[Rfam]
RNA sequence: UUGAAGUUCCAUCUAUAAAUGGAUAAGACUUCGGUUUUAGUAUAUAGGAGUUCUUGAAAGUAAAGGUAAGGGAGCAAUAACCAACUUCUUGUUCUCUCAAGAAAUGGGUAUUGCCCCUUU
Numbered sequence: 001u002u003g004a005a006g007u008u009c010c011a012u013c014u015a016u017a018a019a020u021g022g023a024u025a026a027g028a029c030u031u032c033g034g035u036u037u038u039a040g041u042a043u044a045u046a047g048g049a050g051u052u053c054u055u056g057a058a059a060g061u062a063a064a065g066g067u068a069a070g071g072g073a074g075c076a077a078u079a080a081c082c083a084a085c086u087u088c089u090u091g092u093u094c095u096c097u098c099a100a101g102a103a104a105u106g107g108g109u110a111u112u113g114c115c116c117c118u119u120u
Stems, first nucleotide, its partner, number of pairs: 008023005068120005074114006084105001086103005
Dot-bracket structure: .......(((((......)))))............................................(((((.((((((....(.(((((........))))).)...)))))).)))))
Shown here is a 120-nucleotide sequence from Gynostemma pentagynum, a member of the family "Plastid-psbA-1 3UTR RNA". The family's consensus secondary structure was predicted with LocARNA. Taxonomically the source falls in Gynostemma (Eukaryota, Euphyllophyta, fabids, Cucurbitaceae). Rfam classes the family as a cis-regulatory element. From the family's description: Plastid psbA-1 is a non-coding RNA (ncRNA) present in plastids. It was identified in inverted repeat sequences in the 3 prime untranslate region (3UTR) of photosystem II quinone-binding protein (psbA). For this family Rfam cites "Retrograde signaling in plants: A critical review focusing on the GUN pathway and beyond" (Richter et al., Plant Commun, 2023). Its Rfam clan is "Plastid-psbA 3UTR RNA clan".